[Rfam]
RNA sequence: CGCUUAUUUCGCCCAGGCGGAGCUCGACCGCCCGUUCAAGCGAUGAUUGCGUUCAUCGAUGAUCACCGGGAGGCGUACGGGGUCGAGCCGAUCUGCAGGGUUUUGCCGAUUGCCCCA
Numbered sequence: 001c002g003c004u005u006a007u008u009u010c011g012c013c014c015a016g017g018c019g020g021a022g023c024u025c026g027a028c029c030g031c032c033c034g035u036u037c038a039a040g041c042g043a044u045g046a047u048u049g050c051g052u053u054c055a056u057c058g059a060u061g062a063u064c065a066c067c068g069g070g071a072g073g074c075g076u077a078c079g080g081g082g083u084c085g086a087g088c089c090g091a092u093c094u095g096c097a098g099g100g101u102u103u104u105g106c107c108g109a110u111u112g113c114c115c116c117a
Stems, first nucleotide, its partner, number of pairs: 016032005079116004089112002092109002095106004

The record is a 117-nucleotide sequence from Asticcacaulis sp. AC466, which matches "ALIL pseudoknot" in Rfam.
On this family, see Mazauric et al., J Biol Chem 2008: "Apical loop-internal loop RNA pseudoknots: a new type of stimulator of -1 translational frameshifting in bacteria".
Rfam classes the family as a cis-regulatory element.